The record is a 52-nucleotide sequence from Nonomuraea pusilla, which matches "L17-Actino-Proteobacteria ribosomal protein leader" in Rfam.

Nucleotides: 052
Stems, first nucleotide, its partner, number of pairs: 001020005007014002022052003026049007
Number, partner (000 for none) and nucleotide at each position: 001020c002019c003018g004017c005016g006000c007014g008013g009000c010000g011000g012000u013008u014007c015000c016005c017004g018003c019002g020001g021000c022052c023051c024050g025000a026049c027048u028047c029046c030045g031044g032043u033000a034000c035000c036000u037000g038000g039000u040000a041000c042000g043032g044031c045030c046029g047028g048027g049026g050024c051023g052022g

By type it is a cis-regulatory leader.